[Rfam]
RNA sequence: AGAACACACUUUAAUUAUCCAUGGGGCCAUGGGAUAAACAAAAACCCUGCAAAAACAAGUUAGCACACCCUAGAAUGGUUCUAGCAUGAUUUCUAACCUAUGGCUGUGAUACAAGUGAUGGGAAAAGCCU
Number, nucleotide and partner (000 for none) at each position: 001a000002g000003a000004a000005c000006a000007c000008a000009c120010u000011u118012u117013a116014a000015u114016u113017a000018u000019c000020c000021a000022u108023g107024g000025g105026g104027c103028c102029a101030u100031g099032g098033g097034a000035u000036a000037a000038a000039c000040a000041a000042a000043a000044a000045c000046c000047c000048u086049g085050c000051a000052a000053a080054a079055a000056c077057a076058a000059g000060u073061u072062a071063g070064c000065a000066c000067a000068c000069c000070c063071u062072a061073g060074a000075a000076u057077g056078g000079u054080u053081c000082u000083a000084g000085c049086a048087u000088g000089a000090u000091u000092u000093c000094u000095a000096a000097c033098c032099u031100a030101u029102g028103g027104c026105u025106g000107u023108g022109a000110u000111a000112c000113a016114a015115g000116u013117g012118a011119u000120g009121g000122g000123a000124a000125a000126a000127g000128c000129c000130u000
RNA: MIR845_2 microRNA precursor family
Organism: Vitis rotundifolia